[Rfam]
RNA sequence: GCAGACACACUCUGUUCUUUGCUGCUCUCUCCAGCAUCGGACUUUUUCUGUCUGCUACAUGAACAUGCAGAAUGUGACAGUGACUGGCCUCGUUGUGAACGGCCGGUGCCUCUCAUGUUCUGCUACAUCCAG
Numbered sequence: 001g002c003a004g005a006c007a008c009a010c011u012c013u014g015u016u017c018u019u020u021g022c023u024g025c026u027c028u029c030u031c032c033a034g035c036a037u038c039g040g041a042c043u044u045u046u047u048c049u050g051u052c053u054g055c056u057a058c059a060u061g062a063a064c065a066u067g068c069a070g071a072a073u074g075u076g077a078c079a080g081u082g083a084c085u086g087g088c089c090u091c092g093u094u095g096u097g098a099a100c101g102g103c104c105g106g107u108g109c110c111u112c113u114c115a116u117g118u119u120c121u122g123c124u125a126c127a128u129c130c131a132g
Stems, first nucleotide, its partner, number of pairs: 001055006014042004020036001022034003067123007075115003080109003085105005
The record is a 132-nucleotide RNA sequence from Labrus bergylta, which matches "Small nucleolar RNA SNORA77" in Rfam. Gene Ontology terms of the family: RNA processing and nucleolus. About the family: ACA63 (SNORA77) is a member of the H/ACA class of snoRNAs that guide the sites of modification of uridines to pseudouridines. This snoRNA was identified by computational screening and its expression in mouse experimentally verified by Northern blot and primer extension analysis. ACA63 is proposed to guide the pseudouridylation of 18S rRNA U814. Pairs were carried over by alignment from the consensus structure, which was predicted with RNAalifold. Rfam 15.1 lists 843 matches to the family in 607 species. The family's RNA type in Rfam is H/ACA-box small nucleolar RNA.